Shown here is an 88-nucleotide RNA sequence from Canis lupus, a member of the family "mir-8799 microRNA precursor family". It scores 74 bits against the family's covariance model. NCBI's taxonomy places the organism under Eukaryota, Eumetazoa, Amniota, Canis, Canis lupus.
[Rfam]
RNA sequence: GGGGAGGCCGAAUCCUGGGCUGUGCCCCGGCGCCCUGUGCUCCGGGGCCUGUGCUGUUGGAUUCUCGCUCCCGGCCGAAUAGCCACCU
Numbered sequence: 001g002g003g004g005a006g007g008c009c010g011a012a013u014c015c016u017g018g019g020c021u022g023u024g025c026c027c028c029g030g031c032g033c034c035c036u037g038u039g040c041u042c043c044g045g046g047g048c049c050u051g052u053g054c055u056g057u058u059g060g061a062u063u064c065u066c067g068c069u070c071c072c073g074g075c076c077g078a079a080u081a082g083c084c085a086c087c088u
Base pairs, nucleotide, nucleotide: 001086003084004083007080009077010076014074015073017071018070019069021067022066024064026060027059028056029055030054031053032052033051037049039048040047041046